mir-8799 microRNA precursor family: a 95-nucleotide RNA sequence from Canis lupus. The organism belongs to Canis lupus, within Eukaryota. Clan: mir-8791 microRNA precursor clan. It scores 64 bits against the family's covariance model. Pairs were carried over by alignment from the consensus structure, which was predicted with RNAalifold.

RNA sequence: GGGGGGAGCGCUGGAUCCUGGGCUAUGUCCCCUGGUGCCUUGGGCUCCAGGGCCUGCCCCGCUGGAAUCACGCUCCCGAGGGCAUGCAGCCCCCU
Numbered sequence: 001g002g003g004g005g006g007a008g009c010g011c012u013g014g015a016u017c018c019u020g021g022g023c024u025a026u027g028u029c030c031c032c033u034g035g036u037g038c039c040u041u042g043g044g045c046u047c048c049a050g051g052g053c054c055u056g057c058c059c060c061g062c063u064g065g066a067a068u069c070a071c072g073c074u075c076c077c078g079a080g081g082g083c084a085u086g087c088a089g090c091c092c093c094c095u
Stems, first nucleotide, its partner, number of pairs: 001095006010087002012084002017081002020076003024072001026070002028066002032064001033061003037057002042054001044053003